[Rfam]
RNA sequence: CAGGCUUGCUGGGCCCCGCAGCGGCGCCUGGGUGCUUUCAUUCAAAGGUAGUACCCGACACCGUGAUUCACAAAGGGGCUUUA
Numbered sequence: 001c002a003g004g005c006u007u008g009c010u011g012g013g014c015c016c017c018g019c020a021g022c023g024g025c026g027c028c029u030g031g032g033u034g035c036u037u038u039c040a041u042u043c044a045a046a047g048g049u050a051g052u053a054c055c056c057g058a059c060a061c062c063g064u065g066a067u068u069c070a071c072a073a074a075g076g077g078g079c080u081u082u083a
Base pairs, nucleotide, nucleotide: 012080013079014078015077016076017075022063023062024061029057030056031055032054035051
RNA: ybhL leader